[Rfam]
RNA: Fluoride riboswitch aptamer (crcB RNA motif)
RNA sequence: CGGCGCACGGGAGAUGGCAUUCCUCCUUCAACCGCCCUUGUGGCUGAUGAUGCCUACCCGUUC
Numbered sequence: 001c002g003g004c005g006c007a008c009g010g011g012a013g014a015u016g017g018c019a020u021u022c023c024u025c026c027u028u029c030a031a032c033c034g035c036c037c038u039u040g041u042g043g044c045u046g047a048u049g050a051u052g053c054c055u056a057c058c059c060g061u062u063c
Base pairs, nucleotide, nucleotide: 010026011025012024013023016054017053018052019051020050021049034044035043036042